[Rfam]
A member of the RNA family "mir-3492 microRNA precursor family" from Schistosoma japonicum, 78 nucleotides long.
RNA sequence: GGCUUUCUGAAUACUUGCAGAGAUUUCGCUAGACACCGACCCACCAGGGGUGAUGAAACUUCCAAGAUAAGUGAAGCG
Numbered sequence: 001g002g003c004u005u006u007c008u009g010a011a012u013a014c015u016u017g018c019a020g021a022g023a024u025u026u027c028g029c030u031a032g033a034c035a036c037c038g039a040c041c042c043a044c045c046a047g048g049g050g051u052g053a054u055g056a057a058a059c060u061u062c063c064a065a066g067a068u069a070a071g072u073g074a075a076g077c078g
Stems, first nucleotide, its partner, number of pairs: 002077005008071001011068002016064002020061003024058005030052001
Rfam links the family to the GO terms miRNA-mediated post-transcriptional gene silencing and RISC complex.